[Rfam]
RNA sequence: CUUCCGCCCUCCCCGCACAGGAGGGUGGAUCGGAGGCACACGGCGCGCUCUGCCCUGACCGCUCCGUACGCCUCUUGAGGUCGGCUGCUCGGCCGACGAGCUCCGGGCUGCGGUGCCGGGUGGGUUGAGGGUCCCGCCCCGGCGC
Numbered sequence: 001c002u003u004c005c006g007c008c009c010u011c012c013c014c015g016c017a018c019a020g021g022a023g024g025g026u027g028g029a030u031c032g033g034a035g036g037c038a039c040a041c042g043g044c045g046c047g048c049u050c051u052g053c054c055c056u057g058a059c060c061g062c063u064c065c066g067u068a069c070g071c072c073u074c075u076u077g078a079g080g081u082c083g084g085c086u087g088c089u090c091g092g093c094c095g096a097c098g099a100g101c102u103c104c105g106g107g108c109u110g111c112g113g114u115g116c117c118g119g120g121u122g123g124g125u126u127g128a129g130g131g132u133c134c135c136g137c138c139c140c141g142g143c144g145c
Base pairs, nucleotide, nucleotide: 003029004028005027006026008024009023010022011021012020033074034073035072036071037070040067041066042065043064045062046061048057081096082095083094084093085092086091100114101113102112104110105109118139119138120137121136122135123134124133

Rfam assigns this 145-nucleotide RNA from Streptomyces sp. Rer75 to the family "Streptomyces sRNA scr5239". The family's RNA type in Rfam is small RNA. Rfam links the family to the GO terms mRNA binding and negative regulation of translation. A search with the family's covariance model found it, with a score of 103 bits.